This 181-nucleotide RNA sequence belongs to the Rfam family "6S / SsrS RNA". The family's consensus secondary structure is taken from published work. A search with the family's covariance model found it, with a score of 77 bits. It is annotated as a non-coding RNA gene.
RNA sequence: CUGUUCCUGGGAUGUUUGCCAGUUGGUCGCGUCCUUGAGCCGUUAGAGAUAACUCAGGAGUUUCUGCUGCCAGCGUCCGUGUGCUUGCCCAACUUGAUGGGAUGCCUUAGAUGUUGCACAGGCCUCCGCCUUGAACCAUAACGGUUCAGGGCAAACCAGUAGCGGCAUCUCCGGGAACACU
Numbered sequence: 001c002u003g004u005u006c007c008u009g010g011g012a013u014g015u016u017u018g019c020c021a022g023u024u025g026g027u028c029g030c031g032u033c034c035u036u037g038a039g040c041c042g043u044u045a046g047a048g049a050u051a052a053c054u055c056a057g058g059a060g061u062u063u064c065u066g067c068u069g070c071c072a073g074c075g076u077c078c079g080u081g082u083g084c085u086u087g088c089c090c091a092a093c094u095u096g097a098u099g100g101g102a103u104g105c106c107u108u109a110g111a112u113g114u115u116g117c118a119c120a121g122g123c124c125u126c127c128g129c130c131u132u133g134a135a136c137c138a139u140a141a142c143g144g145u146u147c148a149g150g151g152c153a154a155a156c157c158a159g160u161a162g163c164g165g166c167a168u169c170u171c172c173g174g175g176a177a178c179a180c181u
Base pairs, nucleotide, nucleotide: 002179003178004177005176006175007174008173009172010171011170012168013167014166015165017164018163019162031152032151033150034149036148037147038146039145040144041143057127058126059125062122063121071116072115073114074113075112076111077110083105084104088101089100090099091098